[Rfam]
RNA: SAM-VI (S-adenosyl methionine) riboswitch aptamer
Organism: Bifidobacterium reuteri
RNA sequence: CGUAUCAUUGUGCUCCGCCUGCCUGCGGGGCGAUAAGUCCUGAUGAAAGGGAUGAUAUGAC
Numbered sequence: 001c002g003u004a005u006c007a008u009u010g011u012g013c014u015c016c017g018c019c020u021g022c023c024u025g026c027g028g029g030g031c032g033a034u035a036a037g038u039c040c041u042g043a044u045g046a047a048a049g050g051g052a053u054g055a056u057a058u059g060a061c
Stems, first nucleotide, its partner, number of pairs: 001059009011032008039050002